Overview: Rfam assigns this 51-nucleotide RNA from Nocardioides agri to the family "L17-Actino-Proteobacteria ribosomal protein leader". A reference for the family is Eckert and Weinberg (2020), "Discovery of 20 novel ribosomal leader candidates in bacteria and archaea", BMC Microbiol. The match comes from Rfam's covariance-model search (51 bits). The family's consensus secondary structure is taken from published work. Taxonomically the source falls in Nocardioides (Bacteria, Bacillati, Actinomycetes, Nocardioidaceae).
[Rfam]
RNA sequence: CCGCCCGCACCCGCGGGCGGUCUACCCCGGUACCUGACACGGCCGGAGAGA
Numbered sequence: 001c002c003g004c005c006c007g008c009a010c011c012c013g014c015g016g017g018c019g020g021u022c023u024a025c026c027c028c029g030g031u032a033c034c035u036g037a038c039a040c041g042g043c044c045g046g047a048g049a050g051a
Stems, first nucleotide, its partner, number of pairs: 001020008021051003025048001027046005